[Rfam]
RNA: Bacterial large subunit ribosomal RNA, nucleotides 1518 to 1853
RNA sequence: UGAGAGAACUAUGCUGAAGGAACUCGGCAAAUUGCACGCGUAACUUCGGGAUAAGCGUGACUUCUAUUUGGGCAACCGGAUAGAAGUGGCACAAAAAAGGGGGUAGCGACUGUUUAUCAAAAACACAGGGCUCUGCGAAGUAGCAAUACGACGUAUAGGGUCUGACGCCUGCCCGGUGCCGGAAGGUUAAAUGGAGAGGUGCAAGCUUUGAAAUGAAGCCCCGGUAAACGGCGGCCGUAACUAUAACGGUCCUAAGGUAGCGAAAUUCCUUGUCGGGUAAGUUCCGACCUGCACGAAUGGCGUAACGACUUCCCCACUGUCUCCAGCAUAGACUCA
Numbered sequence: 001u002g003a004g005a006g007a008a009c010u011a012u013g014c015u016g017a018a019g020g021a022a023c024u025c026g027g028c029a030a031a032u033u034g035c036a037c038g039c040g041u042a043a044c045u046u047c048g049g050g051a052u053a054a055g056c057g058u059g060a061c062u063u064c065u066a067u068u069u070g071g072g073c074a075a076c077c078g079g080a081u082a083g084a085a086g087u088g089g090c091a092c093a094a095a096a097a098a099g100g101g102g103g104u105a106g107c108g109a110c111u112g113u114u115u116a117u118c119a120a121a122a123a124c125a126c127a128g129g130g131c132u133c134u135g136c137g138a139a140g141u142a143g144c145a146a147u148a149c150g151a152c153g154u155a156u157a158g159g160g161u162c163u164g165a166c167g168c169c170u171g172c173c174c175g176g177u178g179c180c181g182g183a184a185g186g187u188u189a190a191a192u193g194g195a196g197a198g199g200u201g202c203a204a205g206c207u208u209u210g211a212a213a214u215g216a217a218g219c220c221c222c223g224g225u226a227a228a229c230g231g232c233g234g235c236c237g238u239a240a241c242u243a244u245a246a247c248g249g250u251c252c253u254a255a256g257g258u259a260g261c262g263a264a265a266u267u268c269c270u271u272g273u274c275g276g277g278u279a280a281g282u283u284c285c286g287a288c289c290u291g292c293a294c295g296a297a298u299g300g301c302g303u304a305a306c307g308a309c310u311u312c313c314c315c316a317c318u319g320u321c322u323c324c325a326g327c328a329u330a331g332a333c334u335c336a
Base pairs, nucleotide, nucleotide: 001336002335003334004333009331010330011329012328013327014326015325016324018322019321020320035059036058037057038056039055044049060087061086062085063084064083065082066081067080068079069078070077071076088092100315101314102313103312105310106309107307108306111125112124113123128163129162130161131160132159133158134157135156136153140149141148142147166302167301168300169299171232172231173230176229177228178225179224180223181222182221185220186219187218191214192213196209197208198207199206200205233251234250235249236248237247238246252256262289272288273287274286275285276284277283